[Rfam]
Shown here is a 72-nucleotide RNA sequence from Etheostoma spectabile, a member of the family "mir-133 microRNA precursor family". On this family, see Lagos-Quintana et al., Curr Biol 2002: "Identification of tissue-specific microRNAs from mouse".
RNA sequence: UUGCUAAAGCUGGUAAAAUGGAACCAAAUAAAACUGUUCAAUGGAUUUGGGCCCAUUCAACCAGCGUAGCGU
Numbered sequence: 001u002u003g004c005u006a007a008a009g010c011u012g013g014u015a016a017a018a019u020g021g022a023a024c025c026a027a028a029u030a031a032a033a034c035u036g037u038u039c040a041a042u043g044g045a046u047u048u049g050g051g052c053c054c055a056u057u058c059a060a061c062c063a064g065c066g067u068a069g070c071g072u
Base pairs, nucleotide, nucleotide: 003070004069005068006067009065010064011063012062013061014060017057018056020053021052024050025049026048027047028046029045
Rfam describes the family as follows. mir-133 was first experimentally characterised in mouse and homologues have since been discovered in several other species. The mature sequence is excised from the 3' arm of the hairpin.